Description: The record is a 214-nucleotide sequence from Streptomyces sp. BK239, which matches "Actinobacteria sRNA Ms_IGR-5" in Rfam. It scores 80 bits against the family's covariance model.

RNA sequence: ACCGAGGAAAGGAGGUGGUUCGGAGCAUGUAUGCACACCGGACGUCGGAGGUGGCUGCGGGCUAGCGGCCCGUCGCCCCGCUUCAGUGCGGUGCCGGACCAGCGCGUGUGAGACGCGCGCAGCCGGCCAGUUCCACGCAGUCACCCGACCCGCGAGUCGCCGGUACGUCCGGCCGGCCCUCCCAAGGGAGGACCAGACUCGCGGGUCGUCUGCG
Numbered sequence: 001a002c003c004g005a006g007g008a009a010a011g012g013a014g015g016u017g018g019u020u021c022g023g024a025g026c027a028u029g030u031a032u033g034c035a036c037a038c039c040g041g042a043c044g045u046c047g048g049a050g051g052u053g054g055c056u057g058c059g060g061g062c063u064a065g066c067g068g069c070c071c072g073u074c075g076c077c078c079c080g081c082u083u084c085a086g087u088g089c090g091g092u093g094c095c096g097g098a099c100c101a102g103c104g105c106g107u108g109u110g111a112g113a114c115g116c117g118c119g120c121a122g123c124c125g126g127c128c129a130g131u132u133c134c135a136c137g138c139a140g141u142c143a144c145c146c147g148a149c150c151c152g153c154g155a156g157u158c159g160c161c162g163g164u165a166c167g168u169c170c171g172g173c174c175g176g177c178c179c180u181c182c183c184a185a186g187g188g189a190g191g192a193c194c195a196g197a198c199u200c201g202c203g204g205g206u207c208g209u210c211u212g213c214g
Base pairs, nucleotide, nucleotide: 015058016057017056018055019054060128061127062126063125065123066122068120069119071117072114073113074112146208147207148206149205150204151203152202153201154200155199156198157197158196159177160176161175162174163173164172